RNA: CyVA-1 RNA
RNA sequence: GCACUGGCAGAACUUUGACACCGCUUUAGUUCUUUGUGGUGGUUUGAAGUCAAGCGAUGCCGUAACUACCAACAGUGC
Numbered sequence: 001g002c003a004c005u006g007g008c009a010g011a012a013c014u015u016u017g018a019c020a021c022c023g024c025u026u027u028a029g030u031u032c033u034u035u036g037u038g039g040u041g042g043u044u045u046g047a048a049g050u051c052a053a054g055c056g057a058u059g060c061c062g063u064a065a066c067u068a069c070c071a072a073c074a075g076u077g078c
Stems, first nucleotide, its partner, number of pairs: 001078006009033004038070007